[Rfam]
RNA sequence: UGCCCAGUGCUCUGUAUGGCUUCUUAUUCCUAUCUGACUGUUGAUGGCUCAUAUAGGGAUGGAAGCCAUGCAGUGCGCUGGAGU
Numbered sequence: 001u002g003c004c005c006a007g008u009g010c011u012c013u014g015u016a017u018g019g020c021u022u023c024u025u026a027u028u029c030c031u032a033u034c035u036g037a038c039u040g041u042u043g044a045u046g047g048c049u050c051a052u053a054u055a056g057g058g059a060u061g062g063a064a065g066c067c068a069u070g071c072a073g074u075g076c077g078c079u080g081g082a083g084u
Base pairs, nucleotide, nucleotide: 004081005080006079007078008077009076010075012073013072014071015070016069017068018067019066020065021064022063023062026060027059028058029057030056031055032054033053035051036050037049